This 69-nucleotide RNA from Medicago truncatula belongs to the Rfam family "MIR2629 microRNA precursor family".
The base pairs follow the family's consensus structure, which was predicted with RNAalifold.
Rfam links the family to the GO terms miRNA-mediated post-transcriptional gene silencing and RISC complex.
RNA sequence: UGCCGAAGUUUUCCUCGAUAGUUAACUGCAGUCGGUUCCAUAAUUCGGUAGUUAACUGUCGAGGGGCAU
Numbered sequence: 001u002g003c004c005g006a007a008g009u010u011u012u013c014c015u016c017g018a019u020a021g022u023u024a025a026c027u028g029c030a031g032u033c034g035g036u037u038c039c040a041u042a043a044u045u046c047g048g049u050a051g052u053u054a055a056c057u058g059u060c061g062a063g064g065g066g067c068a069u
Stems, first nucleotide, its partner, number of pairs: 012065002015062015